Shown here is a 128-nucleotide sequence from Myotis myotis, a member of the family "Small nucleolar RNA SNORA30/SNORA37 family". The literature on the family includes a 2001 paper in EMBO J by Huttenhofer et al., "RNomics: an experimental approach that identifies 201 candidates for novel, small, non-messenger RNAs in mouse". Taxonomically the source falls in Myotis (Eukaryota, Deuterostomia, Laurasiatheria, Yangochiroptera). Rfam links the family to the GO terms RNA processing and nucleolus. The members of this family belong to the H/ACA class of snoRNAs that guide the sites of modification of uridines to pseudouridines. This family includes human ACA30 (SNORA30), ACA37 (SNORA37) and the mouse homolog MBI-26. It is annotated as an H/ACA-box small nucleolar RNA.

RNA sequence: CUAUCACUUUCCCAGGUCCUCCCCCAGUCAGUGGGGCCAGGAUUUGGUAACUGGUGCUGGAAAAAAACCUUUAUUGCAUUGUUGCCCUGGGAGUGUGCAGAUGGCAGCUGUCACUCAAUGACACAGAG
Numbered sequence: 001c002u003a004u005c006a007c008u009u010u011c012c013c014a015g016g017u018c019c020u021c022c023c024c025c026a027g028u029c030a031g032u033g034g035g036g037c038c039a040g041g042a043u044u045u046g047g048u049a050a051c052u053g054g055u056g057c058u059g060g061a062a063a064a065a066a067a068c069c070u071u072u073a074u075u076g077c078a079u080u081g082u083u084g085c086c087c088u089g090g091g092a093g094u095g096u097g098c099a100g101a102u103g104g105c106a107g108c109u110g111u112c113a114c115u116c117a118a119u120g121a122c123a124c125a126g127a128g
Stems, first nucleotide, its partner, number of pairs: 003058001005056004013046003017042004022036004069120001070118002073115001075113002078111002082107005087100003
Dot-bracket structure: ..(.((((....(((.((((.((((.......))))..)))).)))......)))).)..........(((.(.((.((..((((((((........)))..)))))..)))).).)).)........
It scores 93 bits against the family's covariance model. Pairs were carried over by alignment from the consensus structure, which was predicted with RNAfold.